RNA: mir-393 microRNA precursor family
Organism: Populus alba
RNA sequence: GCUGGAGUGUUCCAAAGGGAUCGCAUUGAUCUAAUGACUCUCGAUGUCUAAAUCAUAUUAAUAUGUUUAGUUAUUUCGUUGGAUCAUGCGAUCUCUUAGGAAUUUUCCAG
Numbered sequence: 001g002c003u004g005g006a007g008u009g010u011u012c013c014a015a016a017g018g019g020a021u022c023g024c025a026u027u028g029a030u031c032u033a034a035u036g037a038c039u040c041u042c043g044a045u046g047u048c049u050a051a052a053u054c055a056u057a058u059u060a061a062u063a064u065g066u067u068u069a070g071u072u073a074u075u076u077c078g079u080u081g082g083a084u085c086a087u088g089c090g091a092u093c094u095c096u097u098a099g100g101a102a103u104u105u106u107c108c109a110g
Base pairs, nucleotide, nucleotide: 002110003109004108005107006106009103010102011101012100013099015097016096017095018094019093020092021091023089024088025087026086028085029084030083031082032081036077
Dot-bracket structure: .(((((..(((((.(((((((.((((.(((((...(........................................)...))))))))).))))))).)))))..)))))